The record is an 81-nucleotide RNA sequence from Tetraodon nigroviridis, which matches "mir-181 microRNA precursor family" in Rfam. The organism belongs to Tetraodon, within Eukaryota. The base pairs follow the family's consensus structure, which was predicted with PFOLD. The literature on the family includes a 2001 paper in Cell by Ambros, "microRNAs: tiny regulators with great potential". Its family is annotated with RISC complex and miRNA-mediated post-transcriptional gene silencing in the Gene Ontology.
[Rfam]
RNA sequence: UCGCCCCGGUGAACAUUCAACGCUGUCGGUGAGUUUGAGCCAAAUUGGAAAAACCAUCGACCGUUGAUUGUACCCCGUGGC
Numbered sequence: 001u002c003g004c005c006c007c008g009g010u011g012a013a014c015a016u017u018c019a020a021c022g023c024u025g026u027c028g029g030u031g032a033g034u035u036u037g038a039g040c041c042a043a044a045u046u047g048g049a050a051a052a053a054c055c056a057u058c059g060a061c062c063g064u065u066g067a068u069u070g071u072a073c074c075c076c077g078u079g080g081c
Stems, first nucleotide, its partner, number of pairs: 003081003007077002014070002017067006025061007033054004